RNA sequence: GAGACUCCAACUCAAAAAAAAAAAAAAAAGAAAAGAAAAGAACGAUUCAGGGUGAUACCCAUAUCCUCACUGCUAAUGUGAGAUGAAUUUUUGAGUGGGUAAAAGCUGCCCCUGAGGUGACCCACCUACUUUGUGGGAUGCCUGGGAACCACAAUCUGCCUG
Dot-bracket structure: ...........................................(((...((......))...)))(((((.......))))).............(((((..(.(.((...((.(((((.(((((.......))))).))))).)).....)).).))))))